The record is a 94-nucleotide sequence from Caulobacter radicis, which matches "caulobacter sRNA CC1840" in Rfam. The base pairs follow the family's consensus structure. It is annotated as a small RNA.

RNA sequence: UGUGACCGGCCGCCGCGCCAACCCGUCCCUCGAUGCGACGACCGGUUCAGGCAAGACCUGCGGAGACGCGUCGCUUUCCCUGAGGCGGCGCGUC
Numbered sequence: 001u002g003u004g005a006c007c008g009g010c011c012g013c014c015g016c017g018c019c020a021a022c023c024c025g026u027c028c029c030u031c032g033a034u035g036c037g038a039c040g041a042c043c044g045g046u047u048c049a050g051g052c053a054a055g056a057c058c059u060g061c062g063g064a065g066a067c068g069c070g071u072c073g074c075u076u077u078c079c080c081u082g083a084g085g086c087g088g089c090g091c092g093u094c
Base pairs, nucleotide, nucleotide: 004047005046006045007044008043009042011040012039014037015036016035065094066093067092068091069090070089071088072087073086074085075084076083
Dot-bracket structure: ...((((((.((.(((..................))).)).)))))).................((((((((((((......))))))))))))